[Rfam]
Nucleotides: 157
Stems, first nucleotide, its partner, number of pairs: 011142001013140002020027001030137006040064002065122003073098007101116004
Number, partner (000 for none) and nucleotide at each position: 001000g002000g003000g004000u005000a006000g007000u008000c009000a010000c011142g012000a013140c014139c015000a016000a017000c018000c019000g020027c021000u022000u023000g024000a025000c026000a027020g028000g029000a030137g031136c032135g033134g034133g035132g036000g037000a038000a039000c040064c041063a042000c043000c044000a045000c046000u047000c048000g049000g050000a051000g052000u053000u054000u055000c056000g057000a058000c059000u060000c061000c062000u063041u064040g065122g066121g067120g068000c069000g070000a071000a072000g073098g074097c075096c076095g077094c078093u079092c080000a081000g082000g083000u084000g085000c086000u087000u088000c089000a090000c091000c092079g093078g094077g095076c096075g097074g098073u099000c100000c101116g102115g103114g104113c105000a106000c107000a108000c109000u110000c111000c112000a113104g114103c115102c116101c117000g118000a119000g120067c121066c122065c123000g124000a125000c126000a127000g128000c129000u130000c131000a132035c133034c134033c135032c136031g137030u138000a139014g140013g141000c142011u143000c144000u145000g146000g147000a148000g149000a150000g151000g152000u153000a154000a155000a156000a157000c